[Rfam]
RNA sequence: CGUUCUCUCAGGUUCUGGCUCGGCCCCCGGAAUUUGGCCAGAACCCUUUCAGCCGGCUCGAUCCGAGCCGGUUUUUUUUU
Numbered sequence: 001c002g003u004u005c006u007c008u009c010a011g012g013u014u015c016u017g018g019c020u021c022g023g024c025c026c027c028c029g030g031a032a033u034u035u036g037g038c039c040a041g042a043a044c045c046c047u048u049u050c051a052g053c054c055g056g057c058u059c060g061a062u063c064c065g066a067g068c069c070g071g072u073u074u075u076u077u078u079u080u
Stems, first nucleotide, its partner, number of pairs: 011045009024030002051073010
This 80-nucleotide RNA sequence from Caballeronia concitans belongs to the Rfam family "Burkholderia sRNA 54". The family has 4 seed sequences and 91 matches in Rfam 15.1. Rfam classes the family as a small RNA. From the family's description: Identified by RNA-seq, RACE and Northern blot. Strongly expressed in biofilm.